The record is a 78-nucleotide RNA from Leptobrachium leishanense, which matches "mir-144 microRNA precursor family" in Rfam. The match comes from Rfam's covariance-model search (86 bits). Pairs were carried over by alignment from the consensus structure, which was predicted with RNAalifold. Taxonomically the source falls in Leptobrachium (Eukaryota, Metazoa, Bilateria, Pelobatoidea). Rfam 15.1 lists 594 matches to the family in 569 species.
RNA sequence: GCUAUGUAUGGGAUAUCAUCAUAUACUGUAAGUUUGUUAUACGACACUACAGUAUAGAUGAUGUACUAUACCAAACAU
Numbered sequence: 001g002c003u004a005u006g007u008a009u010g011g012g013a014u015a016u017c018a019u020c021a022u023a024u025a026c027u028g029u030a031a032g033u034u035u036g037u038u039a040u041a042c043g044a045c046a047c048u049a050c051a052g053u054a055u056a057g058a059u060g061a062u063g064u065a066c067u068a069u070a071c072c073a074a075a076c077a078u
Base pairs, nucleotide, nucleotide: 007070008069010067011066013064014063015062016061017060018059019058020057022056023055024054025053026052027051028050029049030048032045033044034043
Its family is annotated with RISC complex and miRNA-mediated post-transcriptional gene silencing in the Gene Ontology. On this family, see Xu et al., FEBS Lett 2006: "Identification of microRNAs from different tissues of chicken embryo and adult chicken".